[Rfam]
RNA sequence: UCAAUUCGUCGUAACUGGCGUAGGUGGAUUAACCAUCGGGAAGCGACACAUUAACCUCACAAGGCCGCUCGCCUGGGCUGCACGA
Numbered sequence: 001u002c003a004a005u006u007c008g009u010c011g012u013a014a015c016u017g018g019c020g021u022a023g024g025u026g027g028a029u030u031a032a033c034c035a036u037c038g039g040g041a042a043g044c045g046a047c048a049c050a051u052u053a054a055c056c057u058c059a060c061a062a063g064g065c066c067g068c069u070c071g072c073c074u075g076g077g078c079u080g081c082a083c084g085a
Stems, first nucleotide, its partner, number of pairs: 003052003008047005015040002017073004024036004063079004

The record is an 85-nucleotide sequence from Leucobacter sp. cx-328, which matches "ZMP/ZTP riboswitch aptamer (pfl RNA motif)" in Rfam. The family's consensus secondary structure is taken from published work.